Shown here is an 85-nucleotide sequence from Homo sapiens, a member of the family "mir-3119 microRNA precursor family". Gene Ontology terms of the family: miRNA-mediated post-transcriptional gene silencing and RISC complex. Pairs were carried over by alignment from the consensus structure, which was predicted with RNAalifold. The sequence is in the family's curated seed alignment. Taxonomically the source falls in Homo (Eukaryota, Vertebrata, Mammalia, Hominoidea).
RNA sequence: AUUAACUCUGGCUUUUAACUUUGAUGGCAAAGGGGUAGCUAAACAAUCUAUGUCUUUGCCAUCAAAGUUAAAAGCCAUAGUUAAU
Numbered sequence: 001a002u003u004a005a006c007u008c009u010g011g012c013u014u015u016u017a018a019c020u021u022u023g024a025u026g027g028c029a030a031a032g033g034g035g036u037a038g039c040u041a042a043a044c045a046a047u048c049u050a051u052g053u054c055u056u057u058g059c060c061a062u063c064a065a066a067g068u069u070a071a072a073a074g075c076c077a078u079a080g081u082u083a084a085u
Base pairs, nucleotide, nucleotide: 001085002084003083004082005081006080007079009077010076011075012074013073014072015071016070017069018068019067020066021065022064023063024062025061026060027059028058029057030056031055032054036050037049038048